A member of the RNA family "mir-544 microRNA precursor family" from Lipotes vexillifer, 98 nucleotides long. On this family, see Chiang et al., Genes Dev 2010: "Mammalian microRNAs: experimental evaluation of novel and previously annotated genes". Its family is annotated with RISC complex and miRNA-mediated post-transcriptional gene silencing in the Gene Ontology.
[Rfam]
RNA sequence: AUCACCUGGGAAUCUUGUUAAAAUGCAGAUUCUGUUUCAGUAGGUCUGAGAAGGGACAUGAGAGUGUGCAUUUCUGGCAAGUUCUUAGGUAAUGCCCA
Numbered sequence: 001a002u003c004a005c006c007u008g009g010g011a012a013u014c015u016u017g018u019u020a021a022a023a024u025g026c027a028g029a030u031u032c033u034g035u036u037u038c039a040g041u042a043g044g045u046c047u048g049a050g051a052a053g054g055g056a057c058a059u060g061a062g063a064g065u066g067u068g069c070a071u072u073u074c075u076g077g078c079a080a081g082u083u084c085u086u087a088g089g090u091a092a093u094g095c096c097c098a
Base pairs, nucleotide, nucleotide: 004090005089009085010084011083014081015080016079017078018077019076020075021073022072023071025069026068027067029065031063032062033061
Dot-bracket structure: ...((...(((..((((((((((.(((.(.(((...........................))).).))).))).))))))).)))...))........